RNA sequence: CAGGCAGGCUGGGGGGCCAUGGCAGGAGCAUUCUCAUUGUGGGUCCUGUCAGAUGUUUCAUUUGCGAAUCCUGAU
Numbered sequence: 001c002a003g004g005c006a007g008g009c010u011g012g013g014g015g016g017c018c019a020u021g022g023c024a025g026g027a028g029c030a031u032u033c034u035c036a037u038u039g040u041g042g043g044u045c046c047u048g049u050c051a052g053a054u055g056u057u058u059c060a061u062u063u064g065c066g067a068a069u070c071c072u073g074a075u
Stems, first nucleotide, its partner, number of pairs: 013046003017042002021075001023073005028040003050064006
Record summary
Mammalian CPEB3 ribozyme: a 75-nucleotide sequence from Eptatretus burgeri. The family's consensus secondary structure is taken from published work.